[Rfam]
RNA sequence: AAAAGAAUUAGAGGCAGCAGUGUAUCAGAGUACCAUUUGGAGUUGGCAAACGAAGAAGAAUGGGAAAGGUAAUCAUUGCCGAAAGAUAGAUAUUGGCAAAUCUCUAUCUUGGGGUUAUGGGAAAUACUCAUAACACUCCUUCAUGAAAAUGAAGAGGCGCUAUUAAUAUG
Numbered sequence: 001a002a003a004a005g006a007a008u009u010a011g012a013g014g015c016a017g018c019a020g021u022g023u024a025u026c027a028g029a030g031u032a033c034c035a036u037u038u039g040g041a042g043u044u045g046g047c048a049a050a051c052g053a054a055g056a057a058g059a060a061u062g063g064g065a066a067a068g069g070u071a072a073u074c075a076u077u078g079c080c081g082a083a084a085g086a087u088a089g090a091u092a093u094u095g096g097c098a099a100a101u102c103u104c105u106a107u108c109u110u111g112g113g114g115u116u117a118u119g120g121g122a123a124a125u126a127c128u129c130a131u132a133a134c135a136c137u138c139c140u141u142c143a144u145g146a147a148a149a150u151g152a153a154g155a156g157g158c159g160c161u162a163u164u165a166a167u168a169u170g
Stems, first nucleotide, its partner, number of pairs: 007164001009162003017079006025071001033063006083110008092101003111137002114134008139154006